[Rfam]
RNA sequence: UAUUAUUCCUAAGUACUAGUGCCGCAGGAGUGUUAAUAUUUCUCCUGCUGCCUCAGUGCUUAUCAAUGAAU
Numbered sequence: 001u002a003u004u005a006u007u008c009c010u011a012a013g014u015a016c017u018a019g020u021g022c023c024g025c026a027g028g029a030g031u032g033u034u035a036a037u038a039u040u041u042c043u044c045c046u047g048c049u050g051c052c053u054c055a056g057u058g059c060u061u062a063u064c065a066a067u068g069a070a071u
Stems, first nucleotide, its partner, number of pairs: 003069005010062008019053001024048007
RNA: mir-252 microRNA precursor family